About this RNA: Rfam assigns this 110-nucleotide RNA sequence from Neorhizobium lilium to the family "Rhizobiales sRNA Atu_C7".
[Rfam]
RNA sequence: CCGAGUUCUGUUCUCCUGGCGCGUCUUCAAGCCGCAUGCGGAUCCUCCCUCCCAUGCCGGUGAUGCGCCCGCCUCGCCUCGCUGAACGCUUUUGCGCAGCGAGGCUUUUU
Numbered sequence: 001c002c003g004a005g006u007u008c009u010g011u012u013c014u015c016c017u018g019g020c021g022c023g024u025c026u027u028c029a030a031g032c033c034g035c036a037u038g039c040g041g042a043u044c045c046u047c048c049c050u051c052c053c054a055u056g057c058c059g060g061u062g063a064u065g066c067g068c069c070c071g072c073c074u075c076g077c078c079u080c081g082c083u084g085a086a087c088g089c090u091u092u093u094g095c096g097c098a099g100c101g102a103g104g105c106u107u108u109u110u
Stems, first nucleotide, its partner, number of pairs: 018069008034057005040051001076105009087094001
NCBI's taxonomy places the organism under Bacteria, Pseudomonadati, Pseudomonadota, Hyphomicrobiales, Neorhizobium.